[Rfam]
RNA sequence: GGCGGGCCUCGUGCCGGGUCCGCCCAUCCCACCCGGUACCUGAUACGGCCGGAGUGG
Numbered sequence: 001g002g003c004g005g006g007c008c009u010c011g012u013g014c015c016g017g018g019u020c021c022g023c024c025c026a027u028c029c030c031a032c033c034c035g036g037u038a039c040c041u042g043a044u045a046c047g048g049c050c051g052g053a054g055u056g057g
Base pairs, nucleotide, nucleotide: 001024002023003022004021005020006019007018008017029057030056031055033052034051035050036049037048
Annotation: Rfam assigns this 57-nucleotide RNA sequence from Myxococcus xanthus to the family "L17-Actino-Proteobacteria ribosomal protein leader". By type it is a cis-regulatory leader.